[Rfam]
RNA sequence: CCUCGCGGCUAGCACUGUGGCUGUGACUGUGUGACGCUCACAUCACAGUCAGAGUUCUAGCUGCGCGG
Numbered sequence: 001c002c003u004c005g006c007g008g009c010u011a012g013c014a015c016u017g018u019g020g021c022u023g024u025g026a027c028u029g030u031g032u033g034a035c036g037c038u039c040a041c042a043u044c045a046c047a048g049u050c051a052g053a054g055u056u057c058u059a060g061c062u063g064c065g066c067g068g
Stems, first nucleotide, its partner, number of pairs: 004065003009060004014055003021048006029041003
Rfam assigns this 68-nucleotide RNA sequence from Helicoverpa armigera to the family "mir-11 microRNA precursor family". The family's consensus secondary structure was predicted with RNAalifold.